Small nucleolar RNA SNORD14: a 127-nucleotide RNA from Carnegiea gigantea. U14 small nucleolar RNA (U14 snoRNA) is required for early cleavages of eukaryotic precursor rRNAs. It is annotated as a C/D-box small nucleolar RNA. Lineage of the source: Eukaryota > Embryophyta > Gunneridae > Cactoideae > Carnegiea. Pairs were carried over by alignment from the consensus structure, which was predicted with PFOLD.
RNA sequence: GGUCGAUGAUGAUAAAUUAUAAGGCUUGUUUCUCAAGAACAUUCGCAGUGGCCGCCUAAGAGCUUUCGCCUUUCGCCGGGCUUGAGAGCUACUGCUGCGUCUAAUCCUUCCUUGGAUGUCUGAGACU
Numbered sequence: 001g002g003u004c005g006a007u008g009a010u011g012a013u014a015a016a017u018u019a020u021a022a023g024g025c026u027u028g029u030u031u032c033u034c035a036a037g038a039a040c041a042u043u044c045g046c047a048g049u050g051g052c053c054g055c056c057u058a059a060g061a062g063c064u065u066u067c068g069c070c071u072u073u074c075g076c077c078g079g080g081c082u083u084g085a086g087a088g089c090u091a092c093u094g095c096u097g098c099g100u101c102u103a104a105u106c107c108u109u110c111c112u113u114g115g116a117u118g119u120c121u122g123a124g125a126c127u
Stems, first nucleotide, its partner, number of pairs: 001127004062089006